[Rfam]
RNA: Small nucleolar RNA snR35
Organism: Wickerhamiella sorbophila
RNA sequence: UUUUUUUUUUCUUCGUGCGGACUCCAUAGCAUCACCGUGUUGCUUGUGUUUCAUGAAUCCCACUGAAGAACAAGCGUCAAGCUAAUGGACAGAUGAACAACGGUUGUCUUAACGCCCUUCAUCACUUAUUGCGACUGUUUUGCAGCAGACCCGUGUAGUAGUGGUGAGGGCUGGGGAGCCAUACAUAU
Numbered sequence: 001u002u003u004u005u006u007u008u009u010u011c012u013u014c015g016u017g018c019g020g021a022c023u024c025c026a027u028a029g030c031a032u033c034a035c036c037g038u039g040u041u042g043c044u045u046g047u048g049u050u051u052c053a054u055g056a057a058u059c060c061c062a063c064u065g066a067a068g069a070a071c072a073a074g075c076g077u078c079a080a081g082c083u084a085a086u087g088g089a090c091a092g093a094u095g096a097a098c099a100a101c102g103g104u105u106g107u108c109u110u111a112a113c114g115c116c117c118u119u120c121a122u123c124a125c126u127u128a129u130u131g132c133g134a135c136u137g138u139u140u141u142g143c144a145g146c147a148g149a150c151c152c153g154u155g156u157a158g159u160a161g162u163g164g165u166g167a168g169g170g171c172u173g174g175g176g177a178g179c180c181a182u183a184c185a186u187a188u
Base pairs, nucleotide, nucleotide: 014020023089024088025087027084028083029082030081042075043074044073045072046071047070049068050067051066052065053064108178109177110176114171115170116169117168118167120166121165122164123163124162125161126160129158130157131156132155133150135148136147137146138145139144